[Rfam]
RNA: Small nucleolar RNA SNORD72
RNA sequence: AGCUUAUCAGUGAUGUUGUCAAAAUAAAUGUCUGAACAUAUGAAUAACAUUGAUUUCAGCAUUUAACUGAGAUAAGCU
Numbered sequence: 001a002g003c004u005u006a007u008c009a010g011u012g013a014u015g016u017u018g019u020c021a022a023a024a025u026a027a028a029u030g031u032c033u034g035a036a037c038a039u040a041u042g043a044a045u046a047a048c049a050u051u052g053a054u055u056u057c058a059g060c061a062u063u064u065a066a067c068u069g070a071g072a073u074a075a076g077c078u
Stems, first nucleotide, its partner, number of pairs: 002077007